[Rfam]
RNA sequence: UUACUGGACGCUUUCGCUAUUGACCUGUUUUGUCACUCUCUAACAGAGAACAAUUUGUUUUUUGACAGAGACUGUCAAAACAGUUCAAUAGCUAAAGCGUCCAGUAAC
Numbered sequence: 001u002u003a004c005u006g007g008a009c010g011c012u013u014u015c016g017c018u019a020u021u022g023a024c025c026u027g028u029u030u031u032g033u034c035a036c037u038c039u040c041u042a043a044c045a046g047a048g049a050a051c052a053a054u055u056u057g058u059u060u061u062u063u064g065a066c067a068g069a070g071a072c073u074g075u076c077a078a079a080a081c082a083g084u085u086c087a088a089u090a091g092c093u094a095a096a097g098c099g100u101c102c103a104g105u106a107a108c
Stems, first nucleotide, its partner, number of pairs: 001107006011097004016092008025083004029069007049059004